[Rfam]
RNA sequence: GUUGCUUCUUACUGGUGAACUCCCCCUUGUUUCAUAGUGGGGGAUGUUCAUGUUUCCGAAGCAUAGAUUAAUAUCUUUGCCAGUAUUAAACAGCGCUGUGUAUUCUUUUUGAUAUUGCACUGUGCUACCUGUCUCCUGGUAAAUUU
Numbered sequence: 001g002u003u004g005c006u007u008c009u010u011a012c013u014g015g016u017g018a019a020c021u022c023c024c025c026c027u028u029g030u031u032u033c034a035u036a037g038u039g040g041g042g043g044a045u046g047u048u049c050a051u052g053u054u055u056c057c058g059a060a061g062c063a064u065a066g067a068u069u070a071a072u073a074u075c076u077u078u079g080c081c082a083g084u085a086u087u088a089a090a091c092a093g094c095g096c097u098g099u100g101u102a103u104u105c106u107u108u109u110u111g112a113u114a115u116u117g118c119a120c121u122g123u124g125c126u127a128c129c130u131g132u133c134u135c136c137u138g139g140u141a142a143a144u145u146u
Base pairs, nucleotide, nucleotide: 003063004062005061006060007059008058016050017049018048019047020046021044022043023042024041025040079140080139081138082137083136085134092126093125094124096122098120099119100118